[Rfam]
RNA sequence: GUACAAUAGUACACCGGUUCGCAAAGGGCGGCUCCCCCCCAUCCCUGCGAGAAAGGGGGUGACGCGAUGACGGUAUACCAAGCGUUGAGUCUGAUGCUGACGUUCGGUACCCUGGUUGUCUUGCUCCUGACGAACAAAAAGAAGUAGGCCGCGCGUGAGUCCGACAGCUCCGCAACCUACUCCUCUUCCAACGGGCCGUUCCCUUUGCGGAAACGUCUAUUGUGCGAUGACCGGAGCGCGGCAACGCUUCGG
Numbered sequence: 001g002u003a004c005a006a007u008a009g010u011a012c013a014c015c016g017g018u019u020c021g022c023a024a025a026g027g028g029c030g031g032c033u034c035c036c037c038c039c040c041a042u043c044c045c046u047g048c049g050a051g052a053a054a055g056g057g058g059g060u061g062a063c064g065c066g067a068u069g070a071c072g073g074u075a076u077a078c079c080a081a082g083c084g085u086u087g088a089g090u091c092u093g094a095u096g097c098u099g100a101c102g103u104u105c106g107g108u109a110c111c112c113u114g115g116u117u118g119u120c121u122u123g124c125u126c127c128u129g130a131c132g133a134a135c136a137a138a139a140a141g142a143a144g145u146a147g148g149c150c151g152c153g154c155g156u157g158a159g160u161c162c163g164a165c166a167g168c169u170c171c172g173c174a175a176c177c178u179a180c181u182c183c184u185c186u187u188c189c190a191a192c193g194g195g196c197c198g199u200u201c202c203c204u205u206u207g208c209g210g211a212a213a214c215g216u217c218u219a220u221u222g223u224g225c226g227a228u229g230a231c232c233g234g235a236g237c238g239c240g241g242c243a244a245c246g247c248u249u250c251g252g
Stems, first nucleotide, its partner, number of pairs: 001225005007219003015198006022159001025156001028154003033148002040061002043058003046054001069128001072125004082097003106120004199212004231252008
Dot-bracket structure: (((((.(((.....((((((.(..(..(((..((.....((.((((.......).))).)).......(..((((......(((..........)))........((((.......)))).))))..)..................))...))).)..).................................))))))((((......))))....))).))))).....((((((((......))))))))
A member of the RNA family "BsrG" from Brevibacillus sp. WF146, 252 nucleotides long. Its family is annotated with toxin activity and autolysis in the Gene Ontology. A reference for the family is Muller et al. (2016), "A multistress responsive type I toxin-antitoxin system: bsrE/SR5 from the B. subtilis chromosome", RNA Biol. About the family: bsrE, bsrG and bsrH pair through intermolecular interactions with antisense sRNAs. They form type I toxin/antitoxin system that includes an mRNA encoding for a short, toxic peptide (bsrE, bsrG and bsrH) and an antitoxin that is comprised of an antisense RNA. bsrG encodes a 39-amino-acid toxin, and the 180 nucleotide antisense sRNA called SR4 acts as the antitoxin (they overlap by 123 nucleotides). The source organism's lineage runs through Bacteria, Bacillati, Bacillota, Caryophanales and Brevibacillus.